[Rfam]
RNA sequence: AACCGCUGAUGACUCUUUAUUUUUCUGACACCUCGUAUGAGCGCUGCAGAGCAGUGCCUGAUUCAUCGUUUGCACUCUGAGGUUU
Numbered sequence: 001a002a003c004c005g006c007u008g009a010u011g012a013c014u015c016u017u018u019a020u021u022u023u024u025c026u027g028a029c030a031c032c033u034c035g036u037a038u039g040a041g042c043g044c045u046g047c048a049g050a051g052c053a054g055u056g057c058c059u060g061a062u063u064c065a066u067c068g069u070u071u072g073c074a075c076u077c078u079g080a081g082g083u084u085u
Stems, first nucleotide, its partner, number of pairs: 001084004043055005
A member of the RNA family "Small nucleolar RNA SNORD60" from Bagarius yarrelli, 85 nucleotides long. Pairs were carried over by alignment from the consensus structure, which was predicted with PFOLD. Clan: SNORD60 clan. The match comes from Rfam's covariance-model search (56 bits).